[Rfam]
RNA: c-di-AMP riboswitch aptamer (ydaO/yuaA leader)
RNA sequence: AUAACCCAUCGACCGACACUCACGCACGGCAGGAGCGGGGGACCCAGGUAAGUCGCCGAGCCGUACGUCACGCACGUACCGGACCGGCUUGGGGUGAAGUCGCGUCGCCGUAUCCCUACGGCGGCCGGCCGGGCACUUUCCAGCCCGAACCCGACAGCUCACCUCGUAGGCGCCGGAGAGGAACCUU
Dot-bracket structure: ....((.........................)).((((((....(((((.....................................)))))(((.....(((.......................)))..((((........))))...))).........))))))....................
Numbered sequence: 001a002u003a004a005c006c007c008a009u010c011g012a013c014c015g016a017c018a019c020u021c022a023c024g025c026a027c028g029g030c031a032g033g034a035g036c037g038g039g040g041g042a043c044c045c046a047g048g049u050a051a052g053u054c055g056c057c058g059a060g061c062c063g064u065a066c067g068u069c070a071c072g073c074a075c076g077u078a079c080c081g082g083a084c085c086g087g088c089u090u091g092g093g094g095u096g097a098a099g100u101c102g103c104g105u106c107g108c109c110g111u112a113u114c115c116c117u118a119c120g121g122c123g124g125c126c127g128g129c130c131g132g133g134c135a136c137u138u139u140c141c142a143g144c145c146c147g148a149a150c151c152c153g154a155c156a157g158c159u160c161a162c163c164u165c166g167u168a169g170g171c172g173c174c175g176g177a178g179a180g181g182a183a184c185c186u187u
Stems, first nucleotide, its partner, number of pairs: 005033002035167006045091005092152003100128003131146004